[Rfam]
The record is a 62-nucleotide RNA sequence, which matches "nadA riboswitch" in Rfam. Rfam classes the family as a small RNA.
RNA sequence: GCUUUCAACAUCCCCGUCCGCUGCCCGGCCAGAAAUCUGGCAGGGUGAGCCGGGCUGAAGGC
Numbered sequence: 001g002c003u004u005u006c007a008a009c010a011u012c013c014c015c016g017u018c019c020g021c022u023g024c025c026c027g028g029c030c031a032g033a034a035a036u037c038u039g040g041c042a043g044g045g046u047g048a049g050c051c052g053g054g055c056u057g058a059a060g061g062c
Base pairs, nucleotide, nucleotide: 001062002061003060004059005058006057007056013047014045016055017054018053019052020051021049022048026043028041029040030039031038032037